[Rfam]
RNA sequence: GUUUUCGGAUAAUCGCAUACUUGCCUGUCAGGUAUGAGGAAAGUCCAUGCUAGCACCAGCUGUGAUGCUGGUAGUGUUUGUGCUAGGCGAAGACAUAAGCCUAGGGACGAGAAAUCGUUACGGCGAUCGAAAAAGCUAAGUCUACGGAUAGGUUUGAAUAGAUCUGAAAGUGCCACAGUGACGGAGUUUUUCUGGAAACAGAAAAAGUGGAACGCGGUAAACCCCUCAAGCUAGCAACCCAAAUUUUGGUCGGGGCAUGGGAUACCUGGAAAUCGAACGGAGUGUCCUGACCGGUCUUAGACCGGUAGACAGAUGAUUAUCGAAGGAAAUAAGACCUAGUUAUUUCCGGAACAGAACAUGGCUUAUAGAA
Numbered sequence: 001g002u003u004u005u006c007g008g009a010u011a012a013u014c015g016c017a018u019a020c021u022u023g024c025c026u027g028u029c030a031g032g033u034a035u036g037a038g039g040a041a042a043g044u045c046c047a048u049g050c051u052a053g054c055a056c057c058a059g060c061u062g063u064g065a066u067g068c069u070g071g072u073a074g075u076g077u078u079u080g081u082g083c084u085a086g087g088c089g090a091a092g093a094c095a096u097a098a099g100c101c102u103a104g105g106g107a108c109g110a111g112a113a114a115u116c117g118u119u120a121c122g123g124c125g126a127u128c129g130a131a132a133a134a135g136c137u138a139a140g141u142c143u144a145c146g147g148a149u150a151g152g153u154u155u156g157a158a159u160a161g162a163u164c165u166g167a168a169a170g171u172g173c174c175a176c177a178g179u180g181a182c183g184g185a186g187u188u189u190u191u192c193u194g195g196a197a198a199c200a201g202a203a204a205a206a207g208u209g210g211a212a213c214g215c216g217g218u219a220a221a222c223c224c225c226u227c228a229a230g231c232u233a234g235c236a237a238c239c240c241a242a243a244u245u246u247u248g249g250u251c252g253g254g255g256c257a258u259g260g261g262a263u264a265c266c267u268g269g270a271a272a273u274c275g276a277a278c279g280g281a282g283u284g285u286c287c288u289g290a291c292c293g294g295u296c297u298u299a300g301a302c303c304g305g306u307a308g309a310c311a312g313a314u315g316a317u318u319a320u321c322g323a324a325g326g327a328a329a330u331a332a333g334a335c336c337u338a339g340u341u342a343u344u345u346c347c348g349g350a351a352c353a354g355a356a357c358a359u360g361g362c363u364u365a366u367a368g369a370a
Stems, first nucleotide, its partner, number of pairs: 004370003007366001008321007016036006041364003045361005050234005055072006078229003082225001083104006105121001106119005122224002125164004133155004140149003170222002172218003187206008238254003258289007290306006325347008
About this RNA: Rfam assigns this 370-nucleotide RNA sequence from Streptococcus danieliae to the family "Bacterial RNase P class B". Clan: RNaseP clan. The organism belongs to Streptococcus, within Bacteria. By type it is a ribozyme.